Description
The record is a 167-nucleotide sequence, which matches "c-di-AMP riboswitch aptamer (ydaO/yuaA leader)" in Rfam.
[Rfam]
RNA sequence: GUCGCGUCAGCGCCGUAGGCAGGAGCGGGGGACCCAAGGUAAGUGCCGGGCCCAGCAGUUGAGCUGGAUCCGGCUUGGGGUGAAGUCGCGCACCGACCGGUGCGCGGCCGGGCACUCAACCGGCCCGAACCCGACAGCUCACCUCGCAGGCGUCGGUGAGGGGAUCG
Dot-bracket structure: (((...((..............))((((((....((((...................................))))(((.....(((((((........)))))))..((((.........))))...))).........)))))).)))................